RNA: Clostridiales-3 RNA
RNA sequence: UAGUAGCCUGAUGGAUCGAAAGAUGAAGGGUGAGAAGUUGGAUGGAAAUCUGGUAAAAGGAUUCGGCAUGUUGCGUAGGGAUAAUCAACCACGGAGGGCGAAGAGAUUGUCCUUAUCCUCACAAGGCUAAAAGAGGAGAUAGUGCUUCUGAUAAUUCAGAAGGGCGUCGUGAAACACAUUUUGUGGCUCGUCUGUAACUCCCGGAGGUGAGAACACCUCUUUGUACACGGGGCGAUAUAGGAGUCUAGAAGACUGGCGUGUACCUACA
Numbered sequence: 001u002a003g004u005a006g007c008c009u010g011a012u013g014g015a016u017c018g019a020a021a022g023a024u025g026a027a028g029g030g031u032g033a034g035a036a037g038u039u040g041g042a043u044g045g046a047a048a049u050c051u052g053g054u055a056a057a058a059g060g061a062u063u064c065g066g067c068a069u070g071u072u073g074c075g076u077a078g079g080g081a082u083a084a085u086c087a088a089c090c091a092c093g094g095a096g097g098g099c100g101a102a103g104a105g106a107u108u109g110u111c112c113u114u115a116u117c118c119u120c121a122c123a124a125g126g127c128u129a130a131a132a133g134a135g136g137a138g139a140u141a142g143u144g145c146u147u148c149u150g151a152u153a154a155u156u157c158a159g160a161a162g163g164g165c166g167u168c169g170u171g172a173a174a175c176a177c178a179u180u181u182u183g184u185g186g187c188u189c190g191u192c193u194g195u196a197a198c199u200c201c202c203g204g205a206g207g208u209g210a211g212a213a214c215a216c217c218u219c220u221u222u223g224u225a226c227a228c229g230g231g232g233c234g235a236u237a238u239a240g241g242a243g244u245c246u247a248g249a250a251g252a253c254u255g256g257c258g259u260g261u262a263c264c265u266a267c268a
Stems, first nucleotide, its partner, number of pairs: 006031004015024003090171003094114008116137005138168003142165002145162005175185003204219006223263007242254005